[Rfam]
RNA sequence: CUCUGUUACUAAUAGGGUCUCAGGGCGAAGGAG
Numbered sequence: 001c002u003c004u005g006u007u008a009c010u011a012a013u014a015g016g017g018u019c020u021c022a023g024g025g026c027g028a029a030g031g032a033g
Stems, first nucleotide, its partner, number of pairs: 001025005008018003
The record is a 33-nucleotide RNA from Fusarium duplospermum, which matches "L31-Firmicutes ribosomal protein leader" in Rfam. Pairs were carried over by alignment from the consensus structure, which is taken from published work. Rfam classes the family as a cis-regulatory leader. On this family, see Eckert and Weinberg, BMC Microbiol 2020: "Discovery of 20 novel ribosomal leader candidates in bacteria and archaea". Its Rfam clan is "Ribosomal Protein L31 Leader clan".